[Rfam]
RNA sequence: GGUCCUGUAGCAUAGUGGUCUAAUGCACUACCCUGUCACGGUAGGUUACGUCGGUUCAAAUCCGAUCAGGAUCG
Numbered sequence: 001g002g003u004c005c006u007g008u009a010g011c012a013u014a015g016u017g018g019u020c021u022a023a024u025g026c027a028c029u030a031c032c033c034u035g036u037c038a039c040g041g042u043a044g045g046u047u048a049c050g051u052c053g054g055u056u057c058a059a060a061u062c063c064g065a066u067c068a069g070g071a072u073c074g
Stems, first nucleotide, its partner, number of pairs: 001073007010026004028044005050066005

A member of the RNA family "tRNA" from Synechococcus phage S-CRM01, 74 nucleotides long. Its family is annotated with triplet codon-amino acid adaptor activity in the Gene Ontology. Pairs were carried over by alignment from the consensus structure, which is taken from published work. It scores 63 bits against the family's covariance model.